[Rfam]
RNA sequence: GGGGACGUUACGGAUUCGACAGGGGUAGUUUGAGCUUAAGUUGCGAGUCGAGGGGGUCGGCCUCGUUAAAACGCCAAAGCCAAUAACUGGCAAAACAAACAACAACUUAGCUUUAGCUGCGUAAUAGCACUUUAGCUGUUCCUCCCUCCAUCGCCCAUGUGGUAGGGUAAGGGACUCACUCUUAGUGGGCUACGCCGGUUGUCCUCCGCCUGAGGACGAUGGAAGAGAAUAAUCAGGCUAGCGAUCUGGACGCCUGUCGGCUGGCAGAUGGAUUCGCGAAACGCGAAUAAACCGACUACACUCGUAGAAGCUUAAGUGCCAAUAUCUUUGGACGUGGGUUCGACUCCCACCGUCUCCACCA
Numbered sequence: 001g002g003g004g005a006c007g008u009u010a011c012g013g014a015u016u017c018g019a020c021a022g023g024g025g026u027a028g029u030u031u032g033a034g035c036u037u038a039a040g041u042u043g044c045g046a047g048u049c050g051a052g053g054g055g056g057u058c059g060g061c062c063u064c065g066u067u068a069a070a071a072c073g074c075c076a077a078a079g080c081c082a083a084u085a086a087c088u089g090g091c092a093a094a095a096c097a098a099a100c101a102a103c104a105a106c107u108u109a110g111c112u113u114u115a116g117c118u119g120c121g122u123a124a125u126a127g128c129a130c131u132u133u134a135g136c137u138g139u140u141c142c143u144c145c146c147u148c149c150a151u152c153g154c155c156c157a158u159g160u161g162g163u164a165g166g167g168u169a170a171g172g173g174a175c176u177c178a179c180u181c182u183u184a185g186u187g188g189g190c191u192a193c194g195c196c197g198g199u200u201g202u203c204c205u206c207c208g209c210c211u212g213a214g215g216a217c218g219a220u221g222g223a224a225g226a227g228a229a230u231a232a233u234c235a236g237g238c239u240a241g242c243g244a245u246c247u248g249g250a251c252g253c254c255u256g257u258c259g260g261c262u263g264g265c266a267g268a269u270g271g272a273u274u275c276g277c278g279a280a281a282c283g284c285g286a287a288u289a290a291a292c293c294g295a296c297u298a299c300a301c302u303c304g305u306a307g308a309a310g311c312u313u314a315a316g317u318g319c320c321a322a323u324a325u326c327u328u329u330g331g332a333c334g335u336g337g338g339u340u341c342g343a344c345u346c347c348c349a350c351c352g353u354c355u356c357c358a359c360c361a
Stems, first nucleotide, its partner, number of pairs: 001357007020330008029321001032319001034317009044304005049065005056075001058073002112135002115132002118129003138175006144167004148162004153190006195222003199218001202215002208238005241277004245272004252265003256296004334350005

The record is a 361-nucleotide RNA from Fictibacillus arsenicus, which matches "transfer-messenger RNA" in Rfam. The base pairs follow the family's consensus structure, which is taken from published work. Bacterial tmRNA, also known as 10Sa RNA or SsrA, is named for its dual tRNA and mRNA-like properties. Its role is to liberate the mRNA from a stalled ribosome.